RNA sequence: ACAAUAAUGAGCUAAGCUGUUCGUAUAUCCUCAAUGAUAAGGUUUGGGGGUUUCUACAGGGAACCGUAAAUUCCUGGCUACGAAUAGGGUGCAUUUUGCA
Number, nucleotide and partner (000 for none) at each position: 001a000002c000003a000004a000005u000006a000007a000008u000009g000010a000011g000012c000013u000014a000015a000016g000017c000018u086019g085020u084021u083022c082023g081024u080025a079026u000027a000028u000029c049030c048031u047032c046033a045034a044035u000036g000037a000038u000039a000040a000041g000042g000043u000044u034045u033046g032047g031048g030049g029050g000051u000052u000053u000054c000055u000056a000057c000058a000059g075060g074061g073062a072063a071064c000065c000066g000067u000068a000069a000070a000071u063072u062073c061074c060075u059076g000077g000078c000079u025080a024081c023082g022083a021084a020085u019086a018087g000088g000089g000090u000091g000092c000093a000094u000095u000096u000097u000098g000099c000100a000

Purine riboswitch aptamer: a 100-nucleotide sequence from Paenibacillus sp. FSL R5-0912. Gene Ontology term of the family: purine nucleobase biosynthetic process.